[Rfam]
RNA sequence: CUGGUGGGAAAUUUUUUUUUUUUUAAAAUUUCUUUUUUUUUAAAAAAAAAAAAAAUUUUAAAAAAAAAAAAAACCCCCCCAAAUUGGGGGGUUUUUUUAC
Numbered sequence: 001c002u003g004g005u006g007g008g009a010a011a012u013u014u015u016u017u018u019u020u021u022u023u024u025a026a027a028a029u030u031u032c033u034u035u036u037u038u039u040u041u042a043a044a045a046a047a048a049a050a051a052a053a054a055a056u057u058u059u060a061a062a063a064a065a066a067a068a069a070a071a072a073a074c075c076c077c078c079c080c081a082a083a084u085u086g087g088g089g090g091g092u093u094u095u096u097u098u099a100c
Stems, first nucleotide, its partner, number of pairs: 016068004021063011033051002036048004071094009
The record is a 100-nucleotide RNA from Trichonephila inaurata, which matches "Phenylalanine leader peptide" in Rfam. Gene Ontology term of the family: cellular amino acid metabolic process. The organism belongs to Trichonephila inaurata, within Eukaryota. By type it is a cis-regulatory leader. A search with the family's covariance model found it, with a score of 57 bits.